Rfam assigns this 151-nucleotide RNA sequence from Geodermatophilus marinus to the family "c-di-AMP riboswitch aptamer (ydaO/yuaA leader)".
RNA sequence: GGCCGGGCGCCGCCGAGUCGCCCCCCGGGGCGAGCCGGGGACCCACCGCAGUUCUGGGGUGAAUCCGCCCCGGGCGUCCCGCCCGGGCCGGUAGGGCCGCUUCCCGCCCGAACCCGUCAGCUAACCCGGUAGGCGGCUCCAGGGAGAAGGA
Numbered sequence: 001g002g003c004c005g006g007g008c009g010c011c012g013c014c015g016a017g018u019c020g021c022c023c024c025c026c027g028g029g030g031c032g033a034g035c036c037g038g039g040g041a042c043c044c045a046c047c048g049c050a051g052u053u054c055u056g057g058g059g060u061g062a063a064u065c066c067g068c069c070c071c072g073g074g075c076g077u078c079c080c081g082c083c084c085g086g087g088c089c090g091g092u093a094g095g096g097c098c099g100c101u102u103c104c105c106g107c108c109c110g111a112a113c114c115c116g117u118c119a120g121c122u123a124a125c126c127c128g129g130u131a132g133g134c135g136g137c138u139c140c141a142g143g144g145a146g147a148a149g150g151a
Stems, first nucleotide, its partner, number of pairs: 011135004018033005034130006044056002057115003065091003094109004

The source organism's lineage runs through Bacteria, Bacillati, Actinomycetota, Geodermatophilales and Geodermatophilus. The match comes from Rfam's covariance-model search (60 bits).